[Rfam]
RNA sequence: UUGACAUGCAAAUGAUAAUUGAUAUUAUUUGACUCAACUGAUCGCAAGAUCAGCCGGUAAGCUGGGAGACCAGGCAGUGGACUCUUCAGGUUAUCUCCUCAUCAGGCUAAUCACGGUUAUUGACCCGGCUCUUGCCGGGUCUUUUUUUG
Numbered sequence: 001u002u003g004a005c006a007u008g009c010a011a012a013u014g015a016u017a018a019u020u021g022a023u024a025u026u027a028u029u030u031g032a033c034u035c036a037a038c039u040g041a042u043c044g045c046a047a048g049a050u051c052a053g054c055c056g057g058u059a060a061g062c063u064g065g066g067a068g069a070c071c072a073g074g075c076a077g078u079g080g081a082c083u084c085u086u087c088a089g090g091u092u093a094u095c096u097c098c099u100c101a102u103c104a105g106g107c108u109a110a111u112c113a114c115g116g117u118u119a120u121u122g123a124c125c126c127g128g129c130u131c132u133u134g135c136c137g138g139g140u141c142u143u144u145u146u147u148u149g
Stems, first nucleotide, its partner, number of pairs: 035056001038053006062089003065085004070079001097106003122141008